[Rfam]
RNA sequence: GGCGAUAAACGCGCUCGUAAUAAACGGCUCGGACCCGGGGGCGGUACCCGGCGGCUCCACCAAAUAUCCCUUGUUGGGGGAUCAUGGGGCCGAAAUAGGAUCGACGGACGUCUAAAGGGGUUAGCUUUCGCUCGGUGAGGUACCACCGUUAUCGGUCCGCUAAGCAUAAUUGCCAACAACAAUCAUGCUCCGGUGGCCGUCGCUGCGUAA
Numbered sequence: 001g002g003c004g005a006u007a008a009a010c011g012c013g014c015u016c017g018u019a020a021u022a023a024a025c026g027g028c029u030c031g032g033a034c035c036c037g038g039g040g041g042c043g044g045u046a047c048c049c050g051g052c053g054g055c056u057c058c059a060c061c062a063a064a065u066a067u068c069c070c071u072u073g074u075u076g077g078g079g080g081a082u083c084a085u086g087g088g089g090c091c092g093a094a095a096u097a098g099g100a101u102c103g104a105c106g107g108a109c110g111u112c113u114a115a116a117g118g119g120g121u122u123a124g125c126u127u128u129c130g131c132u133c134g135g136u137g138a139g140g141u142a143c144c145a146c147c148g149u150u151a152u153c154g155g156u157c158c159g160c161u162a163a164g165c166a167u168a169a170u171u172g173c174c175a176a177c178a179a180c181a182a183u184c185a186u187g188c189u190c191c192g193g194u195g196g197c198c199g200u201c202g203c204u205g206c207g208u209a210a
Stems, first nucleotide, its partner, number of pairs: 001132005013121004025110002029107003035051005052092007133148004
Dot-bracket structure: (((((.......((((........((..(((...(((((.......)))))(((((((...........................)))))))............))).)).......))))......)))))((((........))))..............................................................
RNA: permuted transfer-messenger RNA